[Rfam]
RNA sequence: GAGCCAGCCAAUGAAUCUGCUUAUCUGAAUGUGUUUCUGCAGAAAUUUAGACACAGCUGGCAAUGGUGAUAUCAUGUUACAAACCUUAAGGACAAUGGAGGUCAUUACAGUCCCUCAAAAUGGCUACAAUA
Numbered sequence: 001g002a003g004c005c006a007g008c009c010a011a012u013g014a015a016u017c018u019g020c021u022u023a024u025c026u027g028a029a030u031g032u033g034u035u036u037c038u039g040c041a042g043a044a045a046u047u048u049a050g051a052c053a054c055a056g057c058u059g060g061c062a063a064u065g066g067u068g069a070u071a072u073c074a075u076g077u078u079a080c081a082a083a084c085c086u087u088a089a090g091g092a093c094a095a096u097g098g099a100g101g102u103c104a105u106u107a108c109a110g111u112c113c114c115u116c117a118a119a120a121u122g123g124c125u126a127c128a129a130u131a
Stems, first nucleotide, its partner, number of pairs: 003061005016043005072123003083111002087107003091103003
A member of the RNA family "Small nucleolar RNA SNORA33" from Jaculus jaculus, 131 nucleotides long. Gene Ontology terms of the family: RNA processing and nucleolus. ACA33 is a member of the H/ACA class of snoRNA that guide the sites of modification of uridines to pseudouridines.